[Rfam]
This 60-nucleotide RNA sequence from Gemmobacter aquatilis belongs to the Rfam family "terC RNA". Pairs were carried over by alignment from the consensus structure, which is taken from published work. Lineage of the source: Bacteria > Pseudomonadota > Alphaproteobacteria > Rhodobacterales > Gemmobacter.
RNA sequence: UUCGGUGACCGGGCCCCUCUGGCGAGAGUUUUCGGCGCUCUUGCGAUGUCGGCACCGCCA
Numbered sequence: 001u002u003c004g005g006u007g008a009c010c011g012g013g014c015c016c017c018u019c020u021g022g023c024g025a026g027a028g029u030u031u032u033c034g035g036c037g038c039u040c041u042u043g044c045g046a047u048g049u050c051g052g053c054a055c056c057g058c059c060a
Stems, first nucleotide, its partner, number of pairs: 006054002009052004022044008

Rfam classes the family as a cis-regulatory element.